The family of this 48-nucleotide RNA sequence is "DUF3800-XI RNA". Rfam's curators write: Actinobacteria, Firmicutes, Proteobacteria, Spirochaetes (1 example). Rfam classes the family as a small RNA.
[Rfam]
RNA sequence: CGGGCUGGCCGCAAGGCCCUGGUCCACUGGGAGCCGGGGGAGCCCCCG
Numbered sequence: 001c002g003g004g005c006u007g008g009c010c011g012c013a014a015g016g017c018c019c020u021g022g023u024c025c026a027c028u029g030g031g032a033g034c035c036g037g038g039g040g041a042g043c044c045c046c047c048g
Stems, first nucleotide, its partner, number of pairs: 002025005007018004